[Rfam]
RNA sequence: ACUGUUCAAUGAUGAGGCCUGGAGUGUGCGCUGGGCACAGCGCCCGAGUCAGACUGCGGAAGCAUUCCAUGUUGCCUUCCUUCUGAGAACAGC
Numbered sequence: 001a002c003u004g005u006u007c008a009a010u011g012a013u014g015a016g017g018c019c020u021g022g023a024g025u026g027u028g029c030g031c032u033g034g035g036c037a038c039a040g041c042g043c044c045c046g047a048g049u050c051a052g053a054c055u056g057c058g059g060a061a062g063c064a065u066u067c068c069a070u071g072u073u074g075c076c077u078u079c080c081u082u083c084u085g086a087g088a089a090c091a092g093c
Stems, first nucleotide, its partner, number of pairs: 002092004
Dot-bracket structure: .((((...................................................................................)))).
Record summary:
The family of this 93-nucleotide RNA from Otolemur garnettii is "Small nucleolar RNA U83B". U83B belongs to the C/D family of snoRNAs. U83B like U83A has no documented RNA target and they share the same host gene with the C/D box snoRNA U43 (RPL3). N.B. U83A/B/C have no sequence similarity with the U83 snoRNA that was cloned by Jady and Kiss (2000). On this family, see Jady and Kiss, Nucleic Acids Res 2000: "Characterisation of the U83 and U84 small nucleolar RNAs: two novel 2'-O-ribose methylation guide RNAs that lack complementarities to ribosomal RNAs". Gene Ontology terms of the family: RNA processing and nucleolus. The pairing is the family consensus, mapped onto this sequence. The family has 21 seed sequences and 966 matches in Rfam 15.1.